[Rfam]
About this RNA:
A member of the RNA family "terC RNA" from Paracoccus shanxieyensis, 60 nucleotides long. Rfam classes the family as a cis-regulatory element. It scores 64 bits against the family's covariance model.
RNA sequence: ACUUGAUGCCGGGCCCCUCUGGCGAACGUGGCGGCACGUUCGCGAUGUCGGCAUCCUUUG
Numbered sequence: 001a002c003u004u005g006a007u008g009c010c011g012g013g014c015c016c017c018u019c020u021g022g023c024g025a026a027c028g029u030g031g032c033g034g035c036a037c038g039u040u041c042g043c044g045a046u047g048u049c050g051g052c053a054u055c056c057u058u059u060g
Stems, first nucleotide, its partner, number of pairs: 006054007022043008
The source organism's lineage runs through Bacteria, Pseudomonadati, Pseudomonadota, Rhodobacterales and Paracoccus.